[Rfam]
RNA sequence: AGGGAGGGUGCCACCCCUUCUCUCUUUAGAGAGUGCGCCUGGCGGUCUUUCCGUCUCUGGAAAAAGGAGCACAUGGCAUGCUACAAUUGGCACAAGAAAACAAGCUUUGCGGAUUCUUUCUUUGUACUAGAGGAAGCUGUAGCGACCCUGUAUGGCGAGCGGACUCCCCUCUCGGCGACGAGAGCCUCUCGGGCCAAAAGCCAAGUGUUAAUAGCACCCAUACAGGCGGCAGUACCCCACUGCCCUUUCUCAACAUACAAUGACUGAUGAACCACUGUUGGUUUUUCUGACACCUUUGUAGUAGGAUUCCAAGGAAUGUCCUGAAGGUACCCUGUUAGCUUACGCGCAGGAUCUGAUCAGGAGUCUCUUUACAGUGCUGUACACUGUGCAAGGGAUUAAAAAUUGUUUGAGGAAUCCCCGAGAUAGUGGUCUAUCUCUUCCUAUUUUGUUUUACAGACAC
Numbered sequence: 001a002g003g004g005a006g007g008g009u010g011c012c013a014c015c016c017c018u019u020c021u022c023u024c025u026u027u028a029g030a031g032a033g034u035g036c037g038c039c040u041g042g043c044g045g046u047c048u049u050u051c052c053g054u055c056u057c058u059g060g061a062a063a064a065a066g067g068a069g070c071a072c073a074u075g076g077c078a079u080g081c082u083a084c085a086a087u088u089g090g091c092a093c094a095a096g097a098a099a100a101c102a103a104g105c106u107u108u109g110c111g112g113a114u115u116c117u118u119u120c121u122u123u124g125u126a127c128u129a130g131a132g133g134a135a136g137c138u139g140u141a142g143c144g145a146c147c148c149u150g151u152a153u154g155g156c157g158a159g160c161g162g163a164c165u166c167c168c169c170u171c172u173c174g175g176c177g178a179c180g181a182g183a184g185c186c187u188c189u190c191g192g193g194c195c196a197a198a199a200g201c202c203a204a205g206u207g208u209u210a211a212u213a214g215c216a217c218c219c220a221u222a223c224a225g226g227c228g229g230c231a232g233u234a235c236c237c238c239a240c241u242g243c244c245c246u247u248u249c250u251c252a253a254c255a256u257a258c259a260a261u262g263a264c265u266g267a268u269g270a271a272c273c274a275c276u277g278u279u280g281g282u283u284u285u286u287c288u289g290a291c292a293c294c295u296u297u298g299u300a301g302u303a304g305g306a307u308u309c310c311a312a313g314g315a316a317u318g319u320c321c322u323g324a325a326g327g328u329a330c331c332c333u334g335u336u337a338g339c340u341u342a343c344g345c346g347c348a349g350g351a352u353c354u355g356a357u358c359a360g361g362a363g364u365c366u367c368u369u370u371a372c373a374g375u376g377c378u379g380u381a382c383a384c385u386g387u388g389c390a391a392g393g394g395a396u397u398a399a400a401a402a403u404u405g406u407u408u409g410a411g412g413a414a415u416c417c418c419c420g421a422g423a424u425a426g427u428g429g430u431c432u433a434u435c436u437c438u439u440c441c442u443a444u445u446u447u448g449u450u451u452u453a454c455a456g457a458c459a460c
Stems, first nucleotide, its partner, number of pairs: 006012002031081001033079004038067003041055005083299004089294002093289002100282002103279002107274001109272001116266001123259004132250005138144002147226009156191004161186002170183005192202003205217004228244005306415005319362004325354004332349003364395006370388004420437004
This 460-nucleotide sequence from Mischivirus acombewi belongs to the Rfam family "Aphthovirus internal ribosome entry site (IRES)". This family represents the internal ribosome entry site (IRES) of the the aphthoviruses. IRES elements allow cap and end-independent translation of mRNA in the host cell. The IRES achieves this by mediating the internal initiation of translation by recruiting a ribosomal 43S pre-initiation complex directly to the initiation codon and eliminates the requirement for eIF4F. Its family is annotated with ribosome binding in the Gene Ontology. The literature on the family includes a 2003 paper in RNA by Fernandez-Miragall and Martinez-Salas, "Structural organization of a viral IRES depends on the integrity of the GNRA motif". The source organism's lineage runs through Viruses, Orthornavirae, Picornaviridae, Caphthovirinae and Mischivirus A. It scores 118 bits against the family's covariance model.